[Rfam]
The record is a 108-nucleotide sequence from Rhododendron simsii, which matches "Small nucleolar RNA snoR100" in Rfam. The family's consensus secondary structure was predicted with WAR. By type it is an H/ACA-box small nucleolar RNA. On this family, see Marker et al., Curr Biol 2002: "Experimental RNomics: identification of 140 candidates for small non-messenger RNAs in the plant Arabidopsis thaliana". Lineage of the source: Eukaryota > Streptophyta > Magnoliopsida > Pentapetalae > Rhododendron.
RNA sequence: CAAUGAAGGAAGUAUGGUAAUGUACACAUAAAUUGAAUAUGUCUCUAUGCCUGCCCUCAUUUGAUAGCGUUUAGCUUUGAUUUGGGGGCAUGAUUCCGCAGCAAAACA
Numbered sequence: 001c002a003a004u005g006a007a008g009g010a011a012g013u014a015u016g017g018u019a020a021u022g023u024a025c026a027c028a029u030a031a032a033u034u035g036a037a038u039a040u041g042u043c044u045c046u047a048u049g050c051c052u053g054c055c056c057u058c059a060u061u062u063g064a065u066a067g068c069g070u071u072u073a074g075c076u077u078u079g080a081u082u083u084g085g086g087g088g089c090a091u092g093a094u095u096c097c098g099c100a101g102c103a104a105a106a107c108a
Stems, first nucleotide, its partner, number of pairs: 012025004039091005049081001051079001053075002